[Rfam]
RNA: HIF-1 alpha IRES
RNA sequence: CUCGUCUGAGGGGACGCGAGGACCGUCUUCGUCGCGGUUUCGGCCAGCGCGUUGGGCCUGGCCUUGACAAGCAGCGUGAGGAGAGGCUGAGCCGGACCUGGAUCCCUGUGAUUGCCGCCUGCUCCUCCCACCUCUGGUCUCACGAGGGGUUUCCCGCCUCGCGCCCCCCCCCCCACCUCUGGACUUGCGCUUCUUUUCUCUCCGCGUGUGGAGGGAGUCAGUGCUUAGGCCGGAGCGAGCCUGGGGGCCGCCGGCCGUGAAGGCAUCGCGGGGACCGAUUCACCAUG
Number, nucleotide and partner (000 for none) at each position: 001c013002u012003c011004g000005u000006c000007u000008g000009a000010g000011g003012g002013g001014a000015c000016g032017c031018g030019a029020g028021g027022a000023c000024c000025g000026u000027c021028u020029u019030c018031g017032u016033c000034g062035c061036g000037g000038u000039u000040u000041c000042g000043g000044c000045c000046a000047g000048c000049g000050c000051g000052u000053u000054g000055g000056g000057c000058c000059u000060g000061g035062c034063c000064u000065u000066g000067a000068c000069a000070a000071g000072c000073a000074g000075c000076g000077u000078g000079a000080g000081g000082a000083g152084a151085g150086g000087c149088u000089g000090a000091g000092c000093c000094g000095g000096a000097c000098c000099u000100g000101g000102a000103u000104c000105c000106c000107u000108g000109u000110g000111a000112u000113u000114g000115c000116c000117g000118c000119c000120u000121g000122c000123u000124c000125c148126u147127c146128c000129c144130a000131c000132c000133u000134c000135u000136g000137g000138u000139c000140u000141c000142a000143c000144g129145a000146g127147g126148g125149g087150u085151u084152u083153c000154c000155c000156g000157c000158c000159u000160c000161g000162c000163g000164c000165c000166c000167c000168c000169c000170c000171c000172c000173c000174c000175a000176c000177c000178u000179c000180u000181g000182g000183a000184c000185u221186u220187g219188c000189g000190c217191u216192u215193c214194u000195u000196u000197u212198c211199u210200c000201u000202c000203c000204g000205c000206g000207u000208g000209u000210g199211g198212a197213g000214g193215g192216a191217g190218u000219c187220a186221g185222u000223g000224c000225u000226u000227a000228g000229g000230c000231c254232g000233g252234a000235g251236c250237g249238a000239g000240c000241c000242u000243g000244g000245g000246g000247g000248c000249c237250g236251c235252c233253g000254g231255c000256c000257g000258u000259g000260a000261a000262g000263g000264c000265a000266u000267c000268g000269c000270g000271g000272g000273g000274a000275c000276c000277g000278a000279u000280u000281c000282a000283c000284c000285a000286u000287g000